[Rfam]
Rfam assigns this 62-nucleotide sequence from Fukomys damarensis to the family "Gag/pol translational readthrough site".
The family's consensus secondary structure is taken from published work.
RNA sequence: UAGGGGGAACGGGGCUCAGGUCCCCUCCCUGAGCCCAGGGUAACUCUGAAAGUGGAGGGGAA
Numbered sequence: 001u002a003g004g005g006g007g008a009a010c011g012g013g014g015c016u017c018a019g020g021u022c023c024c025c026u027c028c029c030u031g032a033g034c035c036c037a038g039g040g041u042a043a044c045u046c047u048g049a050a051a052g053u054g055g056a057g058g059g060g061a062a
Base pairs, nucleotide, nucleotide: 008041010039012036013035014034015033016031019028022060023059024058025057026056027055
NCBI's taxonomy places the organism under Eukaryota, Eumetazoa, Bilateria, Dipnotetrapodomorpha, Fukomys.
Its family is annotated with viral translational readthrough in the Gene Ontology.
The match comes from Rfam's covariance-model search (68 bits).
It is annotated as a cis-regulatory element.